A member of the RNA family "Gag/pol translational readthrough site" from Orycteropus afer, 62 nucleotides long.
A reference for the family is ten Dam et al. (1990), "RNA pseudoknots: translational frameshifting and readthrough on viral RNAs", Virus Genes.
It scores 75 bits against the family's covariance model.
Taxonomically the source falls in Orycteropus afer (Eukaryota, Vertebrata, Sarcopterygii, Orycteropodidae).
Rfam links the family to the GO term viral translational readthrough.
[Rfam]
RNA sequence: UAGGAGAGACGGGGCUCGGAACCCCUCCCCAAGCCUAGGGUAACUCUUAAAGUGGAGGGGCA
Numbered sequence: 001u002a003g004g005a006g007a008g009a010c011g012g013g014g015c016u017c018g019g020a021a022c023c024c025c026u027c028c029c030c031a032a033g034c035c036u037a038g039g040g041u042a043a044c045u046c047u048u049a050a051a052g053u054g055g056a057g058g059g060g061c062a
Stems, first nucleotide, its partner, number of pairs: 008041001010039001012036004016031001018029002022060006
Dot-bracket structure: .......[.[.[[[[[.[[..((((((]].].]]]]..].].............))))))..